Rfam assigns this 133-nucleotide RNA sequence from Conger conger to the family "Small nucleolar RNA SNORA70". The family's consensus secondary structure was predicted with PFOLD. The organism belongs to Conger, within Eukaryota. Rfam's curators write: snoRNA U70 seems to be exclusive to mammals and is a member of the H/ACA class of snoRNA which contain H (ANANNA) and ACA box motifs. H/ACA box snoRNAs are involved in the conversion of uridines to pseudouridines (5-ribosyluracil) a constituent of structural RNAs (transfer, ribosomal, small nuclear, and small nucleolar). Gene Ontology terms of the family: RNA processing and nucleolus. On this family, see Charette and Gray, IUBMB Life 2000: "Pseudouridine in RNA: what, where, how, and why". It scores 86 bits against the family's covariance model.
RNA sequence: GUGCAGUCCAAUAAGCUGACCAGACGGGAUGUUGUGCUGCUCUGGUGUGCAAUGGCUGCGACAUUAACGUCUGUGGUUGUGUAUGCGCGUCGCUGUCAGUGCGGCGUGCUUUUAAGGGACCGCUGAGACAUUU
Numbered sequence: 001g002u003g004c005a006g007u008c009c010a011a012u013a014a015g016c017u018g019a020c021c022a023g024a025c026g027g028g029a030u031g032u033u034g035u036g037c038u039g040c041u042c043u044g045g046u047g048u049g050c051a052a053u054g055g056c057u058g059c060g061a062c063a064u065u066a067a068c069g070u071c072u073g074u075g076g077u078u079g080u081g082u083a084u085g086c087g088c089g090u091c092g093c094u095g096u097c098a099g100u101g102c103g104g105c106g107u108g109c110u111u112u113u114a115a116g117g118g119a120c121c122g123c124u125g126a127g128a129c130a131u132u133u
Stems, first nucleotide, its partner, number of pairs: 002051004019046004027038001075121003086108006